Background:
Small nucleolar RNA SNORA43: a 135-nucleotide sequence from Sus scrofa. Its family is annotated with RNA processing and nucleolus in the Gene Ontology.
RNA sequence: CAGGUGCCGGACCUGCCGGCACCACGGCUGCAGCUGCUCUGCUGCACCUGUGACCUUGGGGCAAAGAGGAAGCGGCUAUUUCUACGCUCAGUGCUCCAAACCUGGGCACUAAGAAUGGUUUGUAGCCAGACAUUG
Number, nucleotide and partner (000 for none) at each position: 001c000002a000003g000004g062005u061006g000007c059008c058009g057010g056011a000012c000013c000014u000015g000016c000017c000018g000019g000020c000021a000022c000023c000024a051025c050026g049027g048028c000029u000030g000031c000032a000033g000034c000035u000036g000037c000038u000039c000040u000041g000042c000043u000044g000045c000046a000047c000048c027049u026050g025051u024052g000053a000054c000055c000056u010057u009058g008059g007060g000061g005062c004063a000064a000065a000066g000067a000068g000069g000070a000071a000072g000073c000074g127075g126076c125077u000078a000079u000080u000081u000082c118083u117084a116085c000086g000087c113088u112089c000090a000091g000092u108093g107094c106095u105096c104097c000098a000099a000100a000101c000102c000103u000104g096105g095106g094107c093108a092109c000110u000111a000112a088113g087114a000115a000116u084117g083118g082119u000120u000121u000122g000123u000124a000125g076126c075127c074128a000129g000130a000131c000132a000133u000134u000135g000
Source information:
Clan: SNORA17 clan. Rfam describes the family as follows. ACA43 is a member of the H/ACA class of snoRNA that guide the sites of modification of uridines to pseudouridines. The family's consensus secondary structure was predicted with RNAfold.